[Rfam]
Shown here is a 209-nucleotide sequence from Carassius auratus, a member of the family "Small nucleolar RNA SNORD17". It is annotated as a C/D-box small nucleolar RNA. Its family is annotated with nucleolus and RNA processing in the Gene Ontology. The source organism's lineage runs through Eukaryota, Metazoa, Craniata, Ostariophysi and Carassius. The snoRNA HBI-43 belongs to the C/D family of snoRNAs, guiding 2'O-ribose methylation at position U3797 of the 28S rRNA. Pseudouridylation in position U3797 is predicted to be guided by the H/ACA snoRNA ACA48.
RNA sequence: GUGGCGUGAUGAACGUGUUUAUCCAUUCGCUGAGCGCCGCUGGUUCUGUCCCUCGCCGGCCGUACGGUCCGUUCUGGGCCGUGGGGUUACAGUGGUCUGGUUCUGCUCGGCUUCUCCAAUGUUCUAUUGGGUCGACCGCGGCGGGAUCUGACACACUGGUGCGAGGGUCAGGCCGGCUCUGACAAAGACGAAUAGACGUGUCUGAUCAC
Numbered sequence: 001g002u003g004g005c006g007u008g009a010u011g012a013a014c015g016u017g018u019u020u021a022u023c024c025a026u027u028c029g030c031u032g033a034g035c036g037c038c039g040c041u042g043g044u045u046c047u048g049u050c051c052c053u054c055g056c057c058g059g060c061c062g063u064a065c066g067g068u069c070c071g072u073u074c075u076g077g078g079c080c081g082u083g084g085g086g087u088u089a090c091a092g093u094g095g096u097c098u099g100g101u102u103c104u105g106c107u108c109g110g111c112u113u114c115u116c117c118a119a120u121g122u123u124c125u126a127u128u129g130g131g132u133c134g135a136c137c138g139c140g141g142c143g144g145g146a147u148c149u150g151a152c153a154c155a156c157u158g159g160u161g162c163g164a165g166g167g168u169c170a171g172g173c174c175g176g177c178u179c180u181g182a183c184a185a186a187g188a189c190g191a192a193u194a195g196a197c198g199u200g201u202c203u204g205a206u207c208a209c
Stems, first nucleotide, its partner, number of pairs: 010208003014204001017201002020198001023195001025193005030187002034183001039177004045172004050167007057159001058088004063083008091157004095152003104143002106140001109137002112134001115131007